[Rfam]
RNA sequence: UCCCACCCGGCGAAUCGUGGCCGACUGAGGCCACAUUCCUGAGUUCGUGGUGGUUCGAGCCACGGUAAAAGCAUCCUCAGGAUAGCCGGGUGGGUUUUA
Numbered sequence: 001u002c003c004c005a006c007c008c009g010g011c012g013a014a015u016c017g018u019g020g021c022c023g024a025c026u027g028a029g030g031c032c033a034c035a036u037u038c039c040u041g042a043g044u045u046c047g048u049g050g051u052g053g054u055u056c057g058a059g060c061c062a063c064g065g066u067a068a069a070a071g072c073a074u075c076c077u078c079a080g081g082a083u084a085g086c087c088g089g090g091u092g093g094g095u096u097u098u099a
Stems, first nucleotide, its partner, number of pairs: 002094005008088004017034006037082007

Shown here is a 99-nucleotide sequence, a member of the family "DUF3800-IX RNA".
The sequence is in the family's curated seed alignment.
The family's RNA type in Rfam is small RNA.
From the family's description: Actinobacteria, Firmicutes (1 example), Nitrospirae, Proteobacteria, Verrucomicrobia (1 example).